RNA: mir-320 microRNA precursor family
Nucleotides: 076
Stems, first nucleotide, its partner, number of pairs: 014059005021052005029044004034039001
Number, partner (000 for none) and nucleotide at each position: 001000u002000u003000a004000g005000c006000u007000a008000g009000g010000g011000g012000c013000c014059u015058u016057c017056u018055c019000u020000u021052c022051c023050c024049a025048g026000u027000u028000c029044u030043u031042c032041c033000c034039g035000g036000a037000g038000u039034c040000a041032g042031g043030a044029a045000a046000a047000g048025c049024u050023g051022g052021g053000u054000u055018g056017a057016g058015a059014g060000a061000g062000u063000g064000a065000a066000a067000a068000a069000a070000g071000u072000a073000a074000a075000a076000a